[Rfam]
RNA sequence: AGGGCGGCGGCCCCGAGUUGCUUCCCGCGGGGCUCCAGUGCCGUCGUGUAGCACCAUGGGAUUCAGCUCAGGGCUCCGCCAC
Numbered sequence: 001a002g003g004g005c006g007g008c009g010g011c012c013c014c015g016a017g018u019u020g021c022u023u024c025c026c027g028c029g030g031g032g033c034u035c036c037a038g039u040g041c042c043g044u045c046g047u048g049u050a051g052c053a054c055c056a057u058g059g060g061a062u063u064c065a066g067c068u069c070a071g072g073g074c075u076c077c078g079c080c081a082c
Base pairs, nucleotide, nucleotide: 003080004079005078006077007076009074012072013071015069016068018066019065020064023061024060025059026058027057029055030054033051034050036048037047
Dot-bracket structure: ..(((((.(..((.((.(((..(((((.((..((.((.........)).))..)).)))))..))).)).)).).)))))..